[Rfam]
RNA sequence: GCCACGGAUAGGCCCGCGUCGAAACCGGACCGAAAAGCGGGACAACCUCACCCGCCUGCCGUGGCACCUUAAACGAGGC
Numbered sequence: 001g002c003c004a005c006g007g008a009u010a011g012g013c014c015c016g017c018g019u020c021g022a023a024a025c026c027g028g029a030c031c032g033a034a035a036a037g038c039g040g041g042a043c044a045a046c047c048u049c050a051c052c053c054g055c056c057u058g059c060c061g062u063g064g065c066a067c068c069u070u071a072a073a074c075g076a077g078g079c
Base pairs, nucleotide, nucleotide: 001065002064003063004062005061006060007059011031012030014028015027016026037055038054039053040052041051046078047077048076049075
The family of this 79-nucleotide RNA from Sphaerotilus montanus is "int-alpA RNA". NCBI's taxonomy places the organism under Bacteria, Betaproteobacteria, Burkholderiales, Sphaerotilaceae, Sphaerotilus. A search with the family's covariance model found it, with a score of 56 bits. It is annotated as a small RNA. The family has 167 seed sequences and 577 matches in Rfam 15.1. Acidobacteria (1 example), Planctomycetes (1 example), Proteobacteria.